[Rfam]
RNA sequence: GAAAGUUUGCUCUUUUAGUAUUUCUCCAGAAGGUUUCCUCAAAGAGAAAGCCCCC
Dot-bracket structure: ...............................(((((.(((...))).)))))...
The family of this 55-nucleotide RNA from Salmo salar is "U7 small nuclear RNA". The base pairs follow the family's consensus structure, which was predicted with PFOLD. Rfam's curators write: Animal histone pre-mRNAs are spliced by a different mechanism than nuclear pre-mRNAs and self-splicing introns.